[Rfam]
The record is a 112-nucleotide RNA from Bowmanella sp. JS7-9, which matches "TPP riboswitch aptamer (THI element)" in Rfam. NCBI's taxonomy places the organism under Bacteria, Pseudomonadati, Pseudomonadota, Alteromonadales, Bowmanella. Its family is annotated with thiamine pyrophosphate binding in the Gene Ontology.

RNA sequence: AUACGCACCAGGGGGUGCUGGCGAUGAUUAUCGGCCGGCUGAGAUCCGAACAACGGAAACCCUUUGACCUGAUCCGGAUAAUACCGGCGUAGGAAUGGUUGCUUAGCUCUAC
Numbered sequence: 001a002u003a004c005g006c007a008c009c010a011g012g013g014g015g016u017g018c019u020g021g022c023g024a025u026g027a028u029u030a031u032c033g034g035c036c037g038g039c040u041g042a043g044a045u046c047c048g049a050a051c052a053a054c055g056g057a058a059a060c061c062c063u064u065u066g067a068c069c070u071g072a073u074c075c076g077g078a079u080a081a082u083a084c085c086g087g088c089g090u091a092g093g094a095a096u097g098g099u100u101g102c103u104u105a106g107c108u109c110u111a112c
Base pairs, nucleotide, nucleotide: 007099008098009097010096011063012062013061014060016057017039018038019037020036021035046056047055048054068093069092070091071090074087075086076085077084